[Rfam]
RNA sequence: UGCCUUGAUUCCAUGUGUAUGGGCAGUCUCCAAUGUCUGUGUCUGAAACUUUCAAGGCAAUAGUAACUUACAAGUUUUGCUUCCAUCACGCUAAAUCUAUAGCGGUGAUGACAAUGAGACUUGGUACAUGC
Numbered sequence: 001u002g003c004c005u006u007g008a009u010u011c012c013a014u015g016u017g018u019a020u021g022g023g024c025a026g027u028c029u030c031c032a033a034u035g036u037c038u039g040u041g042u043c044u045g046a047a048a049c050u051u052u053c054a055a056g057g058c059a060a061u062a063g064u065a066a067c068u069u070a071c072a073a074g075u076u077u078u079g080c081u082u083c084c085a086u087c088a089c090g091c092u093a094a095a096u097c098u099a100u101a102g103c104g105g106u107g108a109u110g111a112c113a114a115u116g117a118g119a120c121u122u123g124g125u126a127c128a129u130g131c
Stems, first nucleotide, its partner, number of pairs: 002058003006054003020045006071123004084110006
Dot-bracket structure: .(((.(((...........((((((..............))))))......))).)))............((((.........((((((...............)))))).........))))........

Small nucleolar RNA SNORA1: a 131-nucleotide RNA from Leptobrachium leishanense. Rfam links the family to the GO terms RNA processing and nucleolus. Pairs were carried over by alignment from the consensus structure, which was predicted with PFOLD. A search with the family's covariance model found it, with a score of 71 bits. About the family: ACA1 is a member of the H/ACA class of snoRNA that guide the sites of modification of uridines to pseudouridines. The source organism's lineage runs through Eukaryota, Metazoa, Bilateria, Batrachia and Leptobrachium.